[Rfam]
RNA sequence: CAGAAAUGGGAGUUCCUUGCAGCCCAAAGCUUCCAUGCACAAGUUGCUGUAGUUUUGGACUGAAGGGAGCUCCUAAUUCUU
Numbered sequence: 001c002a003g004a005a006a007u008g009g010g011a012g013u014u015c016c017u018u019g020c021a022g023c024c025c026a027a028a029g030c031u032u033c034c035a036u037g038c039a040c041a042a043g044u045u046g047c048u049g050u051a052g053u054u055u056u057g058g059a060c061u062g063a064a065g066g067g068a069g070c071u072c073c074u075a076a077u078u079c080u081u
Stems, first nucleotide, its partner, number of pairs: 007075012021061002024058005
Dot-bracket structure: ......((((((((((((..((.(((((.........................))))).))..))))))))))))......
This 81-nucleotide sequence from Vigna angularis belongs to the Rfam family "MIR319 microRNA precursor family". Lineage of the source: Eukaryota > Magnoliopsida > Fabaceae > Papilionoideae > Vigna angularis. A search with the family's covariance model found it, with a score of 80 bits. Gene Ontology terms of the family: miRNA-mediated post-transcriptional gene silencing and RISC complex.